[Rfam]
RNA sequence: GAUCGACUGGCCCAGUGGUCAAGGCGUCCGCUUUACAAACAAAUCGCGGAAGAUCGCAGGUUCGAACCCUGCGUUGAUCA
Numbered sequence: 001g002a003u004c005g006a007c008u009g010g011c012c013c014a015g016u017g018g019u020c021a022a023g024g025c026g027u028c029c030g031c032u033u034u035a036c037a038a039a040c041a042a043a044u045c046g047c048g049g050a051a052g053a054u055c056g057c058a059g060g061u062u063c064g065a066a067c068c069c070u071g072c073g074u075u076g077a078u079c080a
Base pairs, nucleotide, nucleotide: 001079002078003077004076005075006074007073010025011024012023027050028049029048030047031046056072057071058070059069060068